[Rfam]
eL15-Euryarchaeota ribosomal protein leader: a 72-nucleotide RNA sequence from Natronococcus pandeyae. The family's consensus secondary structure is taken from published work.

RNA sequence: CCUGUCCGGCACGUCGCCGCCACAGGUCGGAAUGUGAUCCGCGGGGAGACCCCCGCCGGGUUGAACCAAGAA
Number, nucleotide and partner (000 for none) at each position: 001c026002c025003u024004g023005u022006c000007c000008g000009g000010c000011a000012c000013g000014u000015c000016g000017c000018c000019g000020c000021c000022a005023c004024a003025g002026g001027u000028c000029g067030g066031a000032a000033u000034g000035u000036g062037a061038u060039c059040c058041g000042c000043g000044g000045g000046g000047a000048g000049a000050c000051c000052c000053c000054c000055g000056c000057c000058g040059g039060g038061u037062u036063g000064a000065a000066c030067c029068a000069a000070g000071a000072a000

The source organism's lineage runs through Archaea, Halobacteria, Halobacteriales, Natrialbaceae and Natronococcus. By type it is a cis-regulatory leader.